[Rfam]
RNA sequence: GCGUGCCUGGCUCCCUGUAUGCCACUCAUGUAGCCCAAUCCAUGGUGUGUUUGGAUGCUGUGGGUGGCGUGCAAGGAGCCAAGCAUGC
Number, nucleotide and partner (000 for none) at each position: 001g088002c087003g086004u085005g084006c083007c000008u081009g080010g079011c078012u077013c076014c075015c000016u073017g072018u071019a070020u069021g068022c067023c066024a065025c000026u000027c062028a061029u060030g000031u000032a000033g000034c000035c000036c000037a000038a000039u000040c000041c000042a000043u000044g000045g000046u000047g000048u000049g000050u000051u000052u000053g000054g000055a000056u000057g000058c000059u000060g029061u028062g027063g000064g000065u024066g023067g022068c021069g020070u019071g018072c017073a016074a000075g014076g013077a012078g011079c010080c009081a008082a000083g006084c005085a004086u003087g002088c001

Record summary
Rfam assigns this 88-nucleotide sequence from Oryza sativa to the family "mir-160 microRNA precursor family". On this family, see Rhoades et al., Cell 2002: "Prediction of plant microRNA targets". Taxonomically the source falls in Oryza sativa (Eukaryota, Streptophytina, Tracheophyta, Oryzinae). Pairs were carried over by alignment from the consensus structure, which was predicted with PFOLD. The family has 7 seed sequences and 1,502 matches in Rfam 15.1.